RNA sequence: CUACCAACAUUGUGAGGUGUUGGGAGGGGGCAACAGAAGUCAGCCGAGGCCGUAGUAGUGAUGCAAACCCGGCGUCAUGAAGGGC
Numbered sequence: 001c002u003a004c005c006a007a008c009a010u011u012g013u014g015a016g017g018u019g020u021u022g023g024g025a026g027g028g029g030g031c032a033a034c035a036g037a038a039g040u041c042a043g044c045c046g047a048g049g050c051c052g053u054a055g056u057a058g059u060g061a062u063g064c065a066a067a068c069c070c071g072g073c074g075u076c077a078u079g080a081a082g083g084g085c
Base pairs, nucleotide, nucleotide: 001027002026004023005022006021007020008019009018010017011016040047041046049085050084051083058078059077060076061075062074063073